[Rfam]
RNA sequence: AAUCCAUCCCUUGGGGAGUAGCCGGCUUUCAGAUUCAGCUGAAAGCGCCUGCGUCAACAUACUCGGCCUGUCUCGCAGGCCGUGGUGCAGGCAACCAUUCUGGUUGGCGAGACCAUCGGCGCGUCAGCACGACGAAAGCCGGACAGUGCCGAUGUGCCGCAGUGCUCGCCCGGCCAGAAAUGC
Numbered sequence: 001a002a003u004c005c006a007u008c009c010c011u012u013g014g015g016g017a018g019u020a021g022c023c024g025g026c027u028u029u030c031a032g033a034u035u036c037a038g039c040u041g042a043a044a045g046c047g048c049c050u051g052c053g054u055c056a057a058c059a060u061a062c063u064c065g066g067c068c069u070g071u072c073u074c075g076c077a078g079g080c081c082g083u084g085g086u087g088c089a090g091g092c093a094a095c096c097a098u099u100c101u102g103g104u105u106g107g108c109g110a111g112a113c114c115a116u117c118g119g120c121g122c123g124u125c126a127g128c129a130c131g132a133c134g135a136a137a138g139c140c141g142g143a144c145a146g147u148g149c150c151g152a153u154g155u156g157c158c159g160c161a162g163u164g165c166u167c168g169c170c171c172g173g174c175c176a177g178a179a180a181u182g183c
Stems, first nucleotide, its partner, number of pairs: 026045003047092010064082008096182004